[Rfam]
RNA sequence: AAAGGAUAUGAUGAAUGUUGAACUUUAUUGUUCCCUAUUGGUUUGAUUCGCCGGAAUGAUGGCAUCUAACGUAUUAGCUCUAUCUGAUCCCUU
Numbered sequence: 001a002a003a004g005g006a007u008a009u010g011a012u013g014a015a016u017g018u019u020g021a022a023c024u025u026u027a028u029u030g031u032u033c034c035c036u037a038u039u040g041g042u043u044u045g046a047u048u049c050g051c052c053g054g055a056a057u058g059a060u061g062g063c064a065u066c067u068a069a070c071g072u073a074u075u076a077g078c079u080c081u082a083u084c085u086g087a088u089c090c091c092u093u
Stems, first nucleotide, its partner, number of pairs: 002092001004090002045066001050063003
Notes
A member of the RNA family "Small nucleolar RNA Z102/R77" from Raphanus sativus, 93 nucleotides long. On this family, see Chen et al., Nucleic Acids Res 2003: "The high diversity of snoRNAs in plants: identification and comparative study of 120 snoRNA genes from Oryza sativa". Its family is annotated with nucleolus and RNA processing in the Gene Ontology. The match comes from Rfam's covariance-model search (78 bits). The source organism's lineage runs through Eukaryota, Embryophyta, eudicotyledons, Brassicales and Raphanus.